[Rfam]
RNA sequence: AAAGCAGGCUGCAAUUACAGUGCUUCAUUCUGUGGGAGUACUGCCAUUUUCCUGCUGAGAGUAACUCUGUUAAUGCUGUUGUCGGUUUCAUCUACGUGGUGCUGAAACCAUUUCUAUUUAACAUGUACAAGU
Number, nucleotide and partner (000 for none) at each position: 001a000002a000003a056004g055005c054006a053007g052008g051009c000010u000011g000012c000013a000014a000015u000016u000017a000018c043019a042020g041021u040022g039023c038024u037025u036026c035027a000028u000029u000030c000031u000032g000033u000034g000035g026036g025037a024038g023039u022040a021041c020042u019043g018044c000045c000046a000047u000048u000049u000050u000051c008052c007053u006054g005055c004056u003057g000058a000059g000060a000061g000062u000063a000064a000065c000066u125067c000068u123069g122070u121071u120072a119073a118074u000075g000076c000077u116078g000079u000080u000081g000082u000083c000084g109085g108086u107087u106088u105089c104090a103091u000092c101093u000094a000095c000096g000097u000098g000099g000100u000101g092102c000103u090104g089105a088106a087107a086108c085109c084110a000111u000112u000113u000114c000115u000116a077117u000118u073119u072120a071121a070122c069123a068124u000125g066126u000127a000128c000129a000130a000131g000132u000
RNA: Small nucleolar RNA SNORA69